Shown here is a 62-nucleotide RNA sequence from Oxynema aestuarii, a member of the family "Plastid-psbN 5UTR RNA".
[Rfam]
RNA sequence: UGAACAGGCCCAUCACGGGAGUCGUCCCCCAACCGGGGGCAACUUUACCAUAUUCCGCGUUU
Number, nucleotide and partner (000 for none) at each position: 001u000002g000003a000004a000005c000006a000007g000008g000009c000010c000011c000012a000013u000014c000015a000016c000017g000018g046019g045020a044021g043022u042023c000024g040025u039026c038027c037028c036029c000030c000031a000032a000033c000034c000035g000036g028037g027038g026039g025040c024041a000042a022043c021044u020045u019046u018047a000048c000049c000050a000051u000052a000053u000054u000055c000056c000057g000058c000059g000060u000061u000062u000
About the family: Plastid psbN is a non-coding RNA (ncRNA) recognised in plastids. It was reported as a conserved 11 stem-loop in the prime untranslated region (5UTR) of psbN genes. It has been reported that the motif is retained in a subset of mature transcripts in barley, which can suggests a possible role in transcript alternative 5 prime processing. Lineage of the source: Bacteria > Cyanobacteriota > Oscillatoriophycideae > Oscillatoriaceae > Oxynema aestuarii. The family has 63 seed sequences and 2,345 matches in Rfam 15.1.